Shown here is a 62-nucleotide RNA from Pyrenaria microcarpa, a member of the family "Plastid-psbA-4 3UTR RNA". Lineage of the source: Eukaryota > Euphyllophyta > Pentapetalae > asterids > Pyrenaria. It is annotated as a cis-regulatory element. The literature on the family includes a 2023 paper in Plant Commun by Richter et al., "Retrograde signaling in plants: A critical review focusing on the GUN pathway and beyond". The base pairs follow the family's consensus structure, which was predicted with LocARNA. Plastid psbA-4 is a non-coding RNA (ncRNA) present in plastids. It was identified in inverted repeat sequences in the 3 prime untranslate region (3UTR) of photosystem II quinone-binding protein (psbA). Clan: Plastid-psbA 3UTR RNA clan. Rfam's curators put it in the seed alignment.
RNA sequence: GAAAGUAAAGGAGCAAUAACCAAUUUCUUGUUCUAUCAGGAAAGCGUUAUUGUUCCUUUACU
Numbered sequence: 001g002a003a004a005g006u007a008a009a010g011g012a013g014c015a016a017u018a019a020c021c022a023a024u025u026u027c028u029u030g031u032u033c034u035a036u037c038a039g040g041a042a043a044g045c046g047u048u049a050u051u052g053u054u055c056c057u058u059u060a061c062u
Stems, first nucleotide, its partner, number of pairs: 007059012025042006